[Rfam]
RNA sequence: CCUGUGGAGUGUUAUACAAACCACAGUAGGGAGAAGCUGCCGAAGUGGGACACGUUGAAGCAGGAA
Numbered sequence: 001c002c003u004g005u006g007g008a009g010u011g012u013u014a015u016a017c018a019a020a021c022c023a024c025a026g027u028a029g030g031g032a033g034a035a036g037c038u039g040c041c042g043a044a045g046u047g048g049g050a051c052a053c054g055u056u057g058a059a060g061c062a063g064g065a066a
Stems, first nucleotide, its partner, number of pairs: 001064005009053005021048003029041002032038002

Rfam assigns this 66-nucleotide RNA sequence from Thermoflavimicrobium daqui to the family "RAGATH-18 RNA".
A search with the family's covariance model found it, with a score of 63 bits.
The organism belongs to Thermoflavimicrobium, within Bacteria.
Rfam's curators write: Actinobacteria, Firmicutes, Fusobacteria, Thermotogae (1 example).
Pairs were carried over by alignment from the consensus structure, which is taken from published work.
By type it is a small RNA.